Shown here is a 373-nucleotide RNA from Parabacteroides sp. An277, a member of the family "Bacterial RNase P class A". The family's RNA type in Rfam is ribozyme. Pairs were carried over by alignment from the consensus structure, which is taken from published work.

[Rfam]
RNA sequence: GCAGUCCGCCGGUCUGUCGCUCGUUUCCUUCGGGAAGCGUGAGGAAAGUCCGGGCAACACAGGGCACCAUAUUUCCUAACGGGAAGCAGGCCGCAAGGUUUGAGUAGCGUAACAGAAAAGAACCGCCGGAGAGGGGAACCUCCGGUAAGGGUGAAAAGGCGAGGUAAGAGCUCACCGUCCCGCUUGGCAACAAGGGGAGCCGUACGCCUUAUGGGUUGCAAGGUCAUGUAUAUCAGCGUAUGUAGGGCGGCCCGUCCGAUGCUGAGGGGUAGAUCGCUCGAGCUUGCCGGUGACGGCAAGACCAGAUAAAUGGCAGACACCCGGCACCUUACGGUGCCGGGCACAGAACCCGGCUUAUAGGCGGACUGCGUUU
Numbered sequence: 001g002c003a004g005u006c007c008g009c010c011g012g013u014c015u016g017u018c019g020c021u022c023g024u025u026u027c028c029u030u031c032g033g034g035a036a037g038c039g040u041g042a043g044g045a046a047a048g049u050c051c052g053g054g055c056a057a058c059a060c061a062g063g064g065c066a067c068c069a070u071a072u073u074u075c076c077u078a079a080c081g082g083g084a085a086g087c088a089g090g091c092c093g094c095a096a097g098g099u100u101u102g103a104g105u106a107g108c109g110u111a112a113c114a115g116a117a118a119a120g121a122a123c124c125g126c127c128g129g130a131g132a133g134g135g136g137a138a139c140c141u142c143c144g145g146u147a148a149g150g151g152u153g154a155a156a157a158g159g160c161g162a163g164g165u166a167a168g169a170g171c172u173c174a175c176c177g178u179c180c181c182g183c184u185u186g187g188c189a190a191c192a193a194g195g196g197g198a199g200c201c202g203u204a205c206g207c208c209u210u211a212u213g214g215g216u217u218g219c220a221a222g223g224u225c226a227u228g229u230a231u232a233u234c235a236g237c238g239u240a241u242g243u244a245g246g247g248c249g250g251c252c253c254g255u256c257c258g259a260u261g262c263u264g265a266g267g268g269g270u271a272g273a274u275c276g277c278u279c280g281a282g283c284u285u286g287c288c289g290g291u292g293a294c295g296g297c298a299a300g301a302c303c304a305g306a307u308a309a310a311u312g313g314c315a316g317a318c319a320c321c322c323g324g325c326a327c328c329u330u331a332c333g334g335u336g337c338c339g340g341g342c343a344c345a346g347a348a349c350c351c352g353g354c355u356u357a358u359a360g361g362c363g364g365a366c367u368g369c370g371u372u373u
Stems, first nucleotide, its partner, number of pairs: 001369010011358001012318007020041001022039007046356003050353005055218004062253004067214005072086005087102001089100004103209002107207005123150002125146007158176002161173003177200001178198004183194004222275004233265005245257004283300007